[Rfam]
RNA: mir-551 microRNA precursor family
Organism: Cyclopterus lumpus
RNA sequence: UGUCCUUAGAAACUAAGCGUGGGUGUGGCCUGAAAAAUAUACACGGCGACCCAUCCUUAGUUUCUGAGGUCU
Numbered sequence: 001u002g003u004c005c006u007u008a009g010a011a012a013c014u015a016a017g018c019g020u021g022g023g024u025g026u027g028g029c030c031u032g033a034a035a036a037a038u039a040u041a042c043a044c045g046g047c048g049a050c051c052c053a054u055c056c057u058u059a060g061u062u063u064c065u066g067a068g069g070u071c072u
Stems, first nucleotide, its partner, number of pairs: 002071001004069004009064006016057002021052004028047003